Notes:
Rfam assigns this 52-nucleotide sequence from Norovirus norwalkense to the family "Norovirus cis-acting replication element (CRE)". Lineage of the source: Viruses > Orthornavirae > Norwalk virus > Norovirus GII > Norovirus GII.4. It is annotated as a cis-regulatory element. A reference for the family is Victoria et al. (2009), "Phylogenetic prediction of cis-acting elements: a cre-like sequence in Norovirus genome?", BMC Res Notes.

RNA sequence: AGUGGCCACCCGCACCACAUACGGAAAAAUGACUGCUGGAACGGGGAAUCCU
Numbered sequence: 001a002g003u004g005g006c007c008a009c010c011c012g013c014a015c016c017a018c019a020u021a022c023g024g025a026a027a028a029a030u031g032a033c034u035g036c037u038g039g040a041a042c043g044g045g046g047a048a049u050c051c052u
Stems, first nucleotide, its partner, number of pairs: 004051002009045004015039003022035003